A member of the RNA family "Small nucleolar RNA SNORD59" from Erinaceus europaeus, 75 nucleotides long. Rfam classes the family as a C/D-box small nucleolar RNA. Gene Ontology terms of the family: nucleolus and RNA processing. NCBI's taxonomy places the organism under Eukaryota, Eumetazoa, Gnathostomata, Laurasiatheria, Erinaceus. The family is grouped with related families in Rfam's "SNORD59 clan".
[Rfam]
RNA sequence: CCUUCUAUGAUGAUUCUAUCCAAAUGACUUUCGUUCUUCUGAGUUUGCUGAAGCCAUAUUUAGGCUCUGAGAAGG
Numbered sequence: 001c002c003u004u005c006u007a008u009g010a011u012g013a014u015u016c017u018a019u020c021c022a023a024a025u026g027a028c029u030u031u032c033g034u035u036c037u038u039c040u041g042a043g044u045u046u047g048c049u050g051a052a053g054c055c056a057u058a059u060u061u062a063g064g065c066u067c068u069g070a071g072a073a074g075g
Base pairs, nucleotide, nucleotide: 001075002074003073005071